[Rfam]
RNA sequence: CCCUUAUCUUUUAAAAGUUUCAAGUUGGUCCCUUAUCUUUUUUUUAGGUUUCAAGUUGGUCCCUUCCGUCAAUUUUUUUAUUGUUACAAUUAAUUCUGGACACGUGUCACAUGUUCAAGUGUGCCACGUGUCCAAAUCAGUUUGCCACGUGUCCAAAUUUAACGGAAAGGACCAACUUGAAACCUAAAAUAAAGAUAAGAGACCAACUUGAAAUUUUUAAAAGAUAAGGAA
Number, nucleotide and partner (000 for none) at each position: 001c000002c229003c228004u227005u226006a225007u224008c223009u000010u000011u000012u000013a000014a000015a000016a000017g000018u000019u000020u000021c000022a000023a208024g207025u206026u000027g204028g203029u202030c000031c000032c199033u198034u197035a196036u195037c194038u193039u192040u191041u000042u189043u188044u000045u186046a185047g184048g000049u000050u000051u000052c000053a000054a000055g000056u000057u000058g000059g000060u000061c000062c000063c000064u000065u000066c000067c000068g000069u000070c000071a000072a000073u000074u000075u000076u000077u000078u000079u000080a000081u000082u000083g000084u000085u000086a000087c000088a000089a000090u000091u000092a000093a000094u000095u000096c000097u000098g000099g000100a000101c000102a000103c000104g000105u000106g000107u000108c000109a000110c000111a000112u000113g000114u000115u000116c000117a000118a000119g000120u000121g000122u000123g000124c000125c000126a000127c000128g000129u000130g000131u000132c000133c000134a000135a000136a000137u000138c000139a000140g000141u000142u000143u000144g000145c000146c000147a000148c000149g000150u000151g000152u000153c000154c000155a000156a000157a000158u000159u000160u000161a000162a000163c000164g000165g000166a000167a000168a000169g000170g000171a000172c000173c000174a000175a000176c000177u000178u000179g000180a000181a000182a000183c000184c047185u046186a045187a000188a043189a042190u000191a040192a039193a038194g037195a036196u035197a034198a033199g032200a000201g000202a029203c028204c027205a000206a025207c024208u023209u000210g000211a000212a000213a000214u000215u000216u000217u000218u000219a000220a000221a000222a000223g008224a007225u006226a005227a004228g003229g002230a000231a000
Annotation:
A member of the RNA family "MIR2655 microRNA precursor family" from Trifolium subterraneum, 231 nucleotides long. The base pairs follow the family's consensus structure, which was predicted with RNAalifold. It scores 124 bits against the family's covariance model.